[Rfam]
RNA sequence: UUGCCGGAACUCUACACACCAACAUUCCACGCUUGUGGGACUCAAAUGUUGGAUGACACAGUUGUAGCUGGAACUGAGUGUUUAGUGCACUCUGUGUAACAGUGAAAACAAUGUGAUCACUUCGGUGGGCUAGUAGCCUGUGGACUAACAACUGGUAACAGUUGCCUCAGGGGCCAAAAGCCACGGUGUUAACAGCACCCUACUAGUUUGAUUGGAGCAAUCCAUGAUGUUACAGAGUUAGUAACUGCCAAACAGAUUGUACUGGUAUCUUGGCAUACCGUGCAACUUAGGAUAGUGAAGGAUGCCCUGGCGGUACCCAUAGGUAACAAGUGACACUAUGGAUCUAAACAGGGGCUCACUCUACGUUGCUUUACAACUAGCUGUGAGUUAAAAAACGUCUAACUAUCCACAACCUAGGGGACUAGGUUUUCCUUUUUAUUUUUAUACACA
Number, nucleotide and partner (000 for none) at each position: 001u000002u000003g000004c000005c000006g000007g000008a000009a000010c000011u000012c067013u066014a065015c064016a062017c061018a000019c000020c000021a000022a000023c000024a000025u053026u052027c051028c000029a000030c000031g000032c000033u045034u044035g043036u000037g000038g000039g000040a000041c000042u000043c035044a034045a033046a000047u000048g000049u000050u000051g027052g026053a025054u000055g000056a000057c000058a000059c000060a000061g017062u016063u000064g015065u014066a013067g012068c000069u285070g000071g283072a000073a281074c000075u000076g000077a000078g000079u000080g000081u000082u265083u264084a263085g262086u261087g000088c000089a000090c000091u000092c000093u256094g000095u000096g000097u000098a000099a000100c000101a000102g000103u000104g000105a000106a000107a239108a238109c000110a000111a000112u000113g233114u232115g231116a230117u229118c000119a000120c125121u000122u000123c000124g000125g120126u000127g000128g208129g207130c206131u205132a204133g203134u202135a201136g200137c171138c170139u169140g168141u000142g166143g165144a000145c000146u000147a000148a000149c000150a163151a162152c161153u160154g159155g000156u000157a000158a000159c154160a153161g152162u151163u150164g000165c143166c142167u000168c140169a139170g138171g137172g182173g181174c180175c000176a000177a000178a000179a000180g174181c173182c172183a000184c000185g199186g198187u197188g196189u000190u000191a000192a000193c000194a000195g000196c188197a187198c186199c185200c136201u135202a134203c133204u132205a131206g130207u129208u128209u227210g000211a225212u224213u000214g000215g000216a000217g000218c000219a000220a000221u000222c000223c000224a212225u211226g000227a209228u000229g117230u116231u115232a114233c113234a000235g000236a000237g000238u108239u107240a000241g000242u000243a000244a000245c000246u000247g000248c000249c000250a000251a000252a000253c000254a000255g000256a093257u000258u000259g000260u000261a086262c085263u084264g083265g082266u000267a000268u000269c000270u000271u000272g000273g000274c000275a000276u000277a000278c000279c000280g000281u073282g000283c071284a000285a069286c000287u000288u000289a000290g000291g407292a406293u405294a404295g403296u000297g000298a000299a000300g000301g000302a000303u000304g000305c353306c352307c351308u350309g000310g000311c000312g344313g343314u342315a000316c000317c000318c340319a339320u338321a337322g336323g000324u000325a000326a000327c000328a000329a000330g000331u000332g000333a000334c000335a000336c322337u321338a320339u319340g318341g000342a314343u313344c312345u000346a000347a000348a000349c000350a308351g307352g306353g305354g000355c387356u386357c385358a384359c383360u000361c380362u379363a000364c000365g000366u000367u000368g000369c000370u000371u000372u000373a000374c000375a000376a000377c000378u000379a362380g361381c000382u000383g359384u358385g357386a356387g355388u000389u000390a000391a000392a000393a000394a000395a000396c000397g000398u000399c000400u000401a000402a000403c295404u294405a293406u292407c291408c000409a000410c000411a428412a427413c426414c425415u424416a000417g423418g422419g000420g000421a000422c418423u417424a415425g414426g413427u412428u411429u000430u000431c000432c000433u000434u000435u000436u000437u000438a000439u000440u000441u000442u000443u000444a000445u000446a000447c000448a000449c000450a000